[Rfam]
RNA sequence: AGCGCGACCGGGUCGACGGCGCGCGAGGUGAGCAGGUAGUCGCGCAUGACGAUGCCGUGCCGCCCCUC
Numbered sequence: 001a002g003c004g005c006g007a008c009c010g011g012g013u014c015g016a017c018g019g020c021g022c023g024c025g026a027g028g029u030g031a032g033c034a035g036g037u038a039g040u041c042g043c044g045c046a047u048g049a050c051g052a053u054g055c056c057g058u059g060c061c062g063c064c065c066c067u068c
Stems, first nucleotide, its partner, number of pairs: 004063003008059001012029002017025002035056004040052003
Shown here is a 68-nucleotide sequence from Streptomyces luteoverticillatus, a member of the family "ASdes TB sRNA". The match comes from Rfam's covariance-model search (68 bits). Rfam 15.1 lists 1,192 matches to the family in 825 species. By type it is a small RNA. The family's consensus secondary structure is taken from published work. Taxonomically the source falls in Streptomyces (Bacteria, Bacillati, Actinomycetes, Streptomycetaceae).